RNA sequence: AUAAAUUUUAUAACAUUCACUCGUAUAAUCGCAGGGAUGUGGCCUGCAAGUUUCUACCGGACCGCCGUAAACGGGCCGACUAUGGGUGGCAAUGGACGGAUG
Numbered sequence: 001a002u003a004a005a006u007u008u009u010a011u012a013a014c015a016u017u018c019a020c021u022c023g024u025a026u027a028a029u030c031g032c033a034g035g036g037a038u039g040u041g042g043c044c045u046g047c048a049a050g051u052u053u054c055u056a057c058c059g060g061a062c063c064g065c066c067g068u069a070a071a072c073g074g075g076c077c078g079a080c081u082a083u084g085g086g087u088g089g090c091a092a093u094g095g096a097c098g099g100a101u102g
Stems, first nucleotide, its partner, number of pairs: 018088008029049001031047005058078003062074003
RNA: Purine riboswitch aptamer
Organism: Neobacillus piezotolerans